Rfam assigns this 67-nucleotide RNA sequence from Urocitellus parryii to the family "Selenocysteine insertion sequence 1". Gene Ontology term of the family: selenocysteine incorporation. Rfam's curators write: The incorporation of selenocysteine into a protein sequence is directed by an in-frame UGA codon (usually a stop codon) within the coding region of the mRNA. Selenoprotein mRNAs contain a conserved secondary structure in the 3' UTR that is required for the distinction of UGA stop from UGA selenocysteine. The selenocysteine insertion sequence (SECIS) is around 60 nt in length and adopts a hairpin structure which is sufficiently well-defined and conserved to act as a computational screen for selenoprotein genes. A search with the family's covariance model found it, with a score of 45 bits. Rfam classes the family as a cis-regulatory element. Lineage of the source: Eukaryota > Amniota > Rodentia > Sciuridae > Urocitellus.
[Rfam]
RNA sequence: CUGGCAACUAUGAUGGCCCGCCUGCAAACCAGCCUUGCUGGUGGGGCGGGCCUGAGAACCUGGCGUG
Number, nucleotide and partner (000 for none) at each position: 001c067002u000003g000004g064005c063006a000007a000008c000009u000010a000011u000012g000013a000014u000015g052016g051017c050018c049019c048020g047021c046022c045023u044024g000025c000026a000027a000028a000029c000030c040031a039032g038033c000034c000035u000036u000037g000038c032039u031040g030041g000042u000043g000044g023045g022046g021047c020048g019049g018050g017051c016052c015053u000054g000055a000056g000057a000058a000059c000060c000061u000062g000063g005064c004065g000066u000067g001